This 307-nucleotide sequence from Vitis vinifera belongs to the Rfam family "Plant signal recognition particle RNA".
Pairs were carried over by alignment from the consensus structure, which is taken from published work.
The literature on the family includes a 2002 paper in Curr Opin Struct Biol by Wild et al., "Towards the structure of the mammalian signal recognition particle".
By type it is a non-coding RNA gene.
Its Rfam clan is "SRP clan".
Taxonomically the source falls in Vitis (Eukaryota, Streptophytina, Mesangiospermae, Viteae).
RNA sequence: GCCGAACUCAGUAGCGAGAGUUUGUGACUCAAGCGAGGGCAUCAGUGUGGUUGGAGAUUGGUCUGGCUGGGUUGGUAAGGCCUGAUGGGGUAAUUGGCCUGGUUCGCCCAUUCCAAGUGGGGAGUUGAGCCCCGCGAUCCGGGCGAAAGUCUGGGUCUUAGGGUUCUUAGAGAUGGAGGGCACCGCGUGAGGCUGGUUUCACAGAGCAGCGUUCACUUCCCGCUCUCUUCGGUGGAAGGAUAACGGGCCGGGACUCCGAAGGCCCAACAACGCCUACCCAGCUACCCUCAACCCGACAAUCACAUUU
Numbered sequence: 001g002c003c004g005a006a007c008u009c010a011g012u013a014g015c016g017a018g019a020g021u022u023u024g025u026g027a028c029u030c031a032a033g034c035g036a037g038g039g040c041a042u043c044a045g046u047g048u049g050g051u052u053g054g055a056g057a058u059u060g061g062u063c064u065g066g067c068u069g070g071g072u073u074g075g076u077a078a079g080g081c082c083u084g085a086u087g088g089g090g091u092a093a094u095u096g097g098c099c100u101g102g103u104u105c106g107c108c109c110a111u112u113c114c115a116a117g118u119g120g121g122g123a124g125u126u127g128a129g130c131c132c133c134g135c136g137a138u139c140c141g142g143g144c145g146a147a148a149g150u151c152u153g154g155g156u157c158u159u160a161g162g163g164u165u166c167u168u169a170g171a172g173a174u175g176g177a178g179g180g181c182a183c184c185g186c187g188u189g190a191g192g193c194u195g196g197u198u199u200c201a202c203a204g205a206g207c208a209g210c211g212u213u214c215a216c217u218u219c220c221c222g223c224u225c226u227c228u229u230c231g232g233u234g235g236a237a238g239g240a241u242a243a244c245g246g247g248c249c250g251g252g253a254c255u256c257c258g259a260a261g262g263c264c265c266a267a268c269a270a271c272g273c274c275u276a277c278c279c280a281g282c283u284a285c286c287c288u289c290a291a292c293c294c295g296a297c298a299a300u301c302a303c304a305u306u307u
Stems, first nucleotide, its partner, number of pairs: 001040003004023006028037003044306010056294001058291003061287001064284003068280005074274003079264005087257001089256002094252001099251008108239002111237005117230001119228007127166006134159001136157009167172001175220005185212004193204003